[Rfam]
RNA sequence: CAUGCGGACGACUCUAAUUCUUGUGGUAGGCUGGCGCAUCGCAACAUGAGGGCAUGAACCCUCGUGCGAAUUGCGGUGCGCUAAACAGGUCCCAAACGGGGCCUUUUUUAUUAUCUGGUU
Numbered sequence: 001c002a003u004g005c006g007g008a009c010g011a012c013u014c015u016a017a018u019u020c021u022u023g024u025g026g027u028a029g030g031c032u033g034g035c036g037c038a039u040c041g042c043a044a045c046a047u048g049a050g051g052g053c054a055u056g057a058a059c060c061c062u063c064g065u066g067c068g069a070a071u072u073g074c075g076g077u078g079c080g081c082u083a084a085a086c087a088g089g090u091c092c093c094a095a096a097c098g099g100g101g102c103c104u105u106u107u108u109u110a111u112u113a114u115c116u117g118g119u120u
Stems, first nucleotide, its partner, number of pairs: 009026001029116002032113001033082010047064006066071001085105001087104007
RNA: Rhizobiales sRNA Atu_C8